Archaeal small subunit ribosomal RNA: a 359-nucleotide part of an RNA from Acidilobus saccharovorans. The family's consensus secondary structure is taken from published work.
[Rfam]
RNA sequence: GGCCUAAAGCGCCCGUAGCCGGCCCCGUAAGUCCCUCCUGAAAGCCCUGGGCUCAACCCAGGGAGUGGGGGGGAUACUGCGGGGCUAGGGGGCGGGAAAGGCCGGGGGUACCCCAGGGGUAGGGGCGAAAUCCGAUAAUCCCUGGGGGACCACCAGUGGCGAAAGCGCCCGGCUGGAACGCGCCCGACGGUGAGGGGCGAAAGCCGGGGGAGCGAACCGGAUUAGAUACCCGGGUAGUCCCGGCUGUAAACGAUGCGGGCUAGGUGUCGGGCGGGCGUUAGAGCCCGCCCGGUGCCGCAGGGAAGCCGUUAAGCCCGCCGCCUGGGGAGUACGGCCGCAAGGCUGAAACUUUAAGGAAU
Numbered sequence: 001g002g003c004c005u006a007a008a009g010c011g012c013c014c015g016u017a018g019c020c021g022g023c024c025c026c027g028u029a030a031g032u033c034c035c036u037c038c039u040g041a042a043a044g045c046c047c048u049g050g051g052c053u054c055a056a057c058c059c060a061g062g063g064a065g066u067g068g069g070g071g072g073g074a075u076a077c078u079g080c081g082g083g084g085c086u087a088g089g090g091g092g093c094g095g096g097a098a099a100g101g102c103c104g105g106g107g108g109u110a111c112c113c114c115a116g117g118g119g120u121a122g123g124g125g126c127g128a129a130a131u132c133c134g135a136u137a138a139u140c141c142c143u144g145g146g147g148g149a150c151c152a153c154c155a156g157u158g159g160c161g162a163a164a165g166c167g168c169c170c171g172g173c174u175g176g177a178a179c180g181c182g183c184c185c186g187a188c189g190g191u192g193a194g195g196g197g198c199g200a201a202a203g204c205c206g207g208g209g210g211a212g213c214g215a216a217c218c219g220g221a222u223u224a225g226a227u228a229c230c231c232g233g234g235u236a237g238u239c240c241c242g243g244c245u246g247u248a249a250a251c252g253a254u255g256c257g258g259g260c261u262a263g264g265u266g267u268c269g270g271g272c273g274g275g276c277g278u279u280a281g282a283g284c285c286c287g288c289c290c291g292g293u294g295c296c297g298c299a300g301g302g303a304a305g306c307c308g309u310u311a312a313g314c315c316c317g318c319c320g321c322c323u324g325g326g327g328a329g330u331a332c333g334g335c336c337g338c339a340a341g342g343c344u345g346a347a348a349c350u351u352u353a354a355g356g357a358a359u
Base pairs, nucleotide, nucleotide: 001322002321003320009319011198012197013196014195016192018191019190020189022085023084024083025082026081027080028079030078031077032074033073034072035071036070037069038068039067040066045063046062047061048060049059050058051057089185090184091183092181093180094179100174101173102172103171104170105169106168107151108150111147112146113145114144115143116142117141118140122133123132124131159166160165203244204243205242206241207240208239212238213237217233218232219231220230255318256317257316258315259314260313263296264295265294266293267292268291269290270289271288272287273286274285275284276283300307301306324351325350326349333344334343335342336341